[Rfam]
RNA: TPP riboswitch aptamer (THI element)
Organism: Streptomyces sparsogenes
RNA sequence: ACAUUCCGACAGGGGAGCGCGAACAGCGCUGAGAGUGCGGCCCGGCCGCAGACCCUCGGACCUGAUCCGGGUCAUACCGGCGUAGGGAGUCAGAUCGUAUGAACC
Numbered sequence: 001a002c003a004u005u006c007c008g009a010c011a012g013g014g015g016a017g018c019g020c021g022a023a024c025a026g027c028g029c030u031g032a033g034a035g036u037g038c039g040g041c042c043c044g045g046c047c048g049c050a051g052a053c054c055c056u057c058g059g060a061c062c063u064g065a066u067c068c069g070g071g072u073c074a075u076a077c078c079g080g081c082g083u084a085g086g087g088a089g090u091c092a093g094a095u096c097g098u099a100u101g102a103a104c105c
Stems, first nucleotide, its partner, number of pairs: 006093001008091003011056004017029004036050005061086004067080004